The family of this 171-nucleotide sequence is "Group II catalytic intron D1-D4-3". It is one of the family's seed sequences. Group II introns are found in rRNA, tRNA and mRNA of organelles in fungi, plants and protists, and also in mRNA in bacteria. The base pairs follow the family's consensus structure. For this family Rfam cites "Group II introns: structure and catalytic versatility of large natural ribozymes" (Lehmann and Schmidt, Crit Rev Biochem Mol Biol, 2003).

RNA sequence: UCCAUUGUGAGGUGGAAUCUGAAGGAAGGUGGAGGCAAAUCUCUGGUCUGACGUACAGAAAUCACAUCAGGCUACAGUUGAGGAUAAGGCUGCAUAACAAACCAAAGUCCAAUAACUACUCGGAAUCAACUGUAGUAAAUGUGGCAGAUAUAUGGAGAGAAAGAAACGUGU
Numbered sequence: 001u002c003c004a005u006u007g008u009g010a011g012g013u014g015g016a017a018u019c020u021g022a023a024g025g026a027a028g029g030u031g032g033a034g035g036c037a038a039a040u041c042u043c044u045g046g047u048c049u050g051a052c053g054u055a056c057a058g059a060a061a062u063c064a065c066a067u068c069a070g071g072c073u074a075c076a077g078u079u080g081a082g083g084a085u086a087a088g089g090c091u092g093c094a095u096a097a098c099a100a101a102c103c104a105a106a107g108u109c110c111a112a113u114a115a116c117u118a119c120u121c122g123g124a125a126u127c128a129a130c131u132g133u134a135g136u137a138a139a140u141g142u143g144g145c146a147g148a149u150a151u152a153u154g155g156a157g158a159g160a161a162a163g164a165a166a167c168g169u170g171u
Stems, first nucleotide, its partner, number of pairs: 001016006028171001032167001036163001040158006046149005062144005071136003075132007082110004088103002091100001